[Rfam]
RNA sequence: GAGUCUGUGCGAGGAAGAGAGCUAUCCGUGGACAGUGAUAGUUCUGUAUAACUGUCAUGGAGUUGCUCUCUUCAUUGACAGGCUG
Numbered sequence: 001g002a003g004u005c006u007g008u009g010c011g012a013g014g015a016a017g018a019g020a021g022c023u024a025u026c027c028g029u030g031g032a033c034a035g036u037g038a039u040a041g042u043u044c045u046g047u048a049u050a051a052c053u054g055u056c057a058u059g060g061a062g063u064u065g066c067u068c069u070c071u072u073c074a075u076u077g078a079c080a081g082g083c084u085g
Base pairs, nucleotide, nucleotide: 014073015072016071017070018069020067021066022065025061026060027059028058031056032055033054035052036051
A member of the RNA family "mir-46/mir-47/mir-281 microRNA precursor family" from Argiope bruennichi, 85 nucleotides long. Its family is annotated with RISC complex and miRNA-mediated post-transcriptional gene silencing in the Gene Ontology. The family has 57 seed sequences and 307 matches in Rfam 15.1. The base pairs follow the family's consensus structure, which was predicted with RNAalifold.